[Rfam]
RNA sequence: GGACUGCGAUGAUGCAAGAGGUUGCCGUAAUUCGGGGAAUUCUUGCGGAGAAUGUCCGGAUCAUAGAAUCGGGCGACGA
Numbered sequence: 001g002g003a004c005u006g007c008g009a010u011g012a013u014g015c016a017a018g019a020g021g022u023u024g025c026c027g028u029a030a031u032u033c034g035g036g037g038a039a040u041u042c043u044u045g046c047g048g049a050g051a052a053u054g055u056c057c058g059g060a061u062c063a064u065a066g067a068a069u070c071g072g073g074c075g076a077c078g079a
Stems, first nucleotide, its partner, number of pairs: 014046003018042003025035003053078004059074001061072002

Background: The family of this 79-nucleotide RNA sequence from Caloramator sp. E03 is "S10-Clostridia ribosomal protein leader". It scores 43 bits against the family's covariance model. It is annotated as a cis-regulatory leader.